Eukaryotic large subunit ribosomal RNA: a 291-nucleotide part of an RNA from Aphis glycines.
[Rfam]
Nucleotides: 291
Base pairs, nucleotide, nucleotide: 001273002272003271004270006268007267009264010263011262012261017125020124021123024120025119026118027117028116029115129255130254131253132252133251134250135249276291277290278289279288
Number, partner (000 for none) and nucleotide at each position: 001273c002272g003271g004270a005000c006268a007267g008000a009264g010263c011262c012261c013000g014000c015000g016000a017125g018000u019000c020124c021123c022000c023000g024120c025119c026118g027117g028116g029115c030000g031000a032000a033000u034000u035000c036000a037000c038000g039000g040000u041000c042000g043000g044000u045000c046000c047000g048000u049000a050000a051000a052000a053000c054000g055000g056000c057000c058000g059000g060000c061000c062000g063000g064000a065000u066000c067000u068000u069000u070000c071000g072000c073000u074000c075000g076000g077000c078000c079000a080000g081000c082000g083000g084000a085000c086000g087000u088000c089000g090000c091000g092000a093000c094000u095000c096000g097000u098000u099000g100000g101000g102000c103000g104000c105000c106000g107000g108000c109000c110000g111000a112000a113000g114000g115029g116028c117027c118026c119025g120024g121000g122000u123021g124020g125017c126000g127000g128000u129255u130254c131253g132252u133251c134250g135249c136000g137000g138000c139000g140000g141000u142000c143000g144000c145000g146000u147000c148000u149000c150000g151000g152000c153000g154000u155000g156000a157000c158000c159000g160000u161000u162000c163000g164000c165000g166000c167000c168000g169000a170000a171000c172000c173000c174000c175000g176000g177000u178000g179000c180000u181000c182000c183000u184000g185000g186000u187000c188000g189000g190000c191000u192000c193000g194000c195000c196000c197000g198000a199000c200000g201000g202000c203000a204000a205000g206000a207000a208000c209000c210000g211000u212000c213000g214000a215000c216000g217000c218000g219000g220000c221000c222000c223000c224000g225000u226000c227000g228000c229000a230000g231000g232000c233000g234000g235000g236000g237000u238000c239000c240000c241000g242000u243000c244000g245000g246000u247000c248000g249135g250134c251133g252132a253131c254130g255129a256000g257000u258000u259000u260000c261012g262011g263010g264009c265000u266000a267007c268006u269000u270004u271003c272002c273001g274000a275000c276291c277290c278289g279288u280000c281000u282000u283000g284000a285000a286000a287000c288279a289278c290277g291276g